[Rfam]
RNA: Na+ riboswitch aptamer (DUF1646)
RNA sequence: GGUUGGGGUAAUUAAACUGCCUUCAAGAAUCCGACUUACCUGGGUGGGUAGGU
Numbered sequence: 001g002g003u004u005g006g007g008g009u010a011a012u013u014a015a016a017c018u019g020c021c022u023u024c025a026a027g028a029a030u031c032c033g034a035c036u037u038a039c040c041u042g043g044g045u046g047g048g049u050a051g052g053u
Base pairs, nucleotide, nucleotide: 003026004025005024006022007021008020009019010018034053035052036051037050038049039048040047